Shown here is a 594-nucleotide part of an RNA from Pythium oligandrum, a member of the family "Eukaryotic small subunit ribosomal RNA". The family is grouped with related families in Rfam's "SSU clan". The base pairs follow the family's consensus structure, which is taken from published work. On this family, see Yusupov et al., Science 2001: "Crystal structure of the ribosome at 5.5 A resolution". Its family is annotated with ribosome and structural constituent of ribosome in the Gene Ontology.
RNA sequence: AGUCAUACGCUUGUCUCAAAGAUUAAGCCAUGCAUGUCUAAGUAUAAACACUUUUGUACUGUGAAACUGCGAAUGGCUCAUUAUAUCAGUUAUAGUCUACUCGAUAGUACCUUACUACUUGGAUAACCGUAGUAAUUCUAGAGCUAAUACAUGCAUCAAUACCCAACUGCUUGUCGGACGGGUAGCAUUUAUUAGAUUGAAACCAAUGCAGUCUUCGGGCUGGUAUUGUGUUGAGUCAUAAUAACUGUGCGGACCGCACUUUUGUGCGGUAAAUCGAUUGAGUUUCUGCCCUAUCAGCUUUGGAUGGUAGGAUAUGGGCCUACCAUGGCAUUAACGGGUAACGGGGAAUUAGGGUUUGAUUCCGGAGAGGGAGCCUUAGAAACGGCUACCACAUCCAAGGAAGGCAGCAGGCGCGUAAAUUACCCAAUCCUGACACAGGGAGGUAGUGACAAUAAAUAACAAUGCUCUGGCUCUUGUAGUCGGGCAAUUGGAAUGAGAACAAUUUAAAUCCCUUAUCGAGGAUCAAUUGGAGGGCAAGUCUGGUGCCAGCAGCCGCGGUAAUUCCAGCUCCAAUAGCGUAUAUUAAAGUUGUUG
Numbered sequence: 001a002g003u004c005a006u007a008c009g010c011u012u013g014u015c016u017c018a019a020a021g022a023u024u025a026a027g028c029c030a031u032g033c034a035u036g037u038c039u040a041a042g043u044a045u046a047a048a049c050a051c052u053u054u055u056g057u058a059c060u061g062u063g064a065a066a067c068u069g070c071g072a073a074u075g076g077c078u079c080a081u082u083a084u085a086u087c088a089g090u091u092a093u094a095g096u097c098u099a100c101u102c103g104a105u106a107g108u109a110c111c112u113u114a115c116u117a118c119u120u121g122g123a124u125a126a127c128c129g130u131a132g133u134a135a136u137u138c139u140a141g142a143g144c145u146a147a148u149a150c151a152u153g154c155a156u157c158a159a160u161a162c163c164c165a166a167c168u169g170c171u172u173g174u175c176g177g178a179c180g181g182g183u184a185g186c187a188u189u190u191a192u193u194a195g196a197u198u199g200a201a202a203c204c205a206a207u208g209c210a211g212u213c214u215u216c217g218g219g220c221u222g223g224u225a226u227u228g229u230g231u232u233g234a235g236u237c238a239u240a241a242u243a244a245c246u247g248u249g250c251g252g253a254c255c256g257c258a259c260u261u262u263u264g265u266g267c268g269g270u271a272a273a274u275c276g277a278u279u280g281a282g283u284u285u286c287u288g289c290c291c292u293a294u295c296a297g298c299u300u301u302g303g304a305u306g307g308u309a310g311g312a313u314a315u316g317g318g319c320c321u322a323c324c325a326u327g328g329c330a331u332u333a334a335c336g337g338g339u340a341a342c343g344g345g346g347a348a349u350u351a352g353g354g355u356u357u358g359a360u361u362c363c364g365g366a367g368a369g370g371g372a373g374c375c376u377u378a379g380a381a382a383c384g385g386c387u388a389c390c391a392c393a394u395c396c397a398a399g400g401a402a403g404g405c406a407g408c409a410g411g412c413g414c415g416u417a418a419a420u421u422a423c424c425c426a427a428u429c430c431u432g433a434c435a436c437a438g439g440g441a442g443g444u445a446g447u448g449a450c451a452a453u454a455a456a457u458a459a460c461a462a463u464g465c466u467c468u469g470g471c472u473c474u475u476g477u478a479g480u481c482g483g484g485c486a487a488u489u490g491g492a493a494u495g496a497g498a499a500c501a502a503u504u505u506a507a508a509u510c511c512c513u514u515a516u517c518g519a520g521g522a523u524c525a526a527u528u529g530g531a532g533g534g535c536a537a538g539u540c541u542g543g544u545g546c547c548a549g550c551a552g553c554c555g556c557g558g559u560a561a562u563u564c565c566a567g568c569u570c571c572a573a574u575a576g577c578g579u580a581u582a583u584u585a586a587a588g589u590u591g592u593u594g
Base pairs, nucleotide, nucleotide: 001584002583003582005581006580007579008578009577010576011575014454016452020447021414027412028411029410031409032408033407036070037069041068042067043066048062049061077367078366079365087288088287089286092283093282096281097280102276103275104274105273118153120151121150127143130140131139132138160184161183162182163181164180167177168176189244190243191242192241193240194239202232204230205229211220212219213218254269255268256267257266258265290338291337292336297329298328299327304326305325306324307323308322309321310320311319342364343363344362345361346357347356348355349354369390370389372387373386374385392403394401395400420445422444423443424442428440429439430438431437432436460490461489462488463486464485465484466483467482469480497517498516499514501513527573528572529571530570531569532568540567541566542565543564549556550555